[Rfam]
mir-142 microRNA precursor family: an 80-nucleotide RNA from Sus scrofa. Pairs were carried over by alignment from the consensus structure, which was predicted with RNAalifold. It is one of the family's seed sequences. Its family is annotated with RISC complex and miRNA-mediated post-transcriptional gene silencing in the Gene Ontology. Taxonomically the source falls in Sus (Eukaryota, Chordata, Craniata, Laurasiatheria).
RNA sequence: GUGCAGUCACCCAUAAAGUAGAAAGCACUACUAACAGCACUGGAGGGUGUAGUGUUUCCUACUUUAUGGAUGAGUGUACU
Numbered sequence: 001g002u003g004c005a006g007u008c009a010c011c012c013a014u015a016a017a018g019u020a021g022a023a024a025g026c027a028c029u030a031c032u033a034a035c036a037g038c039a040c041u042g043g044a045g046g047g048u049g050u051a052g053u054g055u056u057u058c059c060u061a062c063u064u065u066a067u068g069g070a071u072g073a074g075u076g077u078a079c080u
Base pairs, nucleotide, nucleotide: 012068013067014066015065016064017063018062019061020060021059024056025055026054027053028052029051030050031049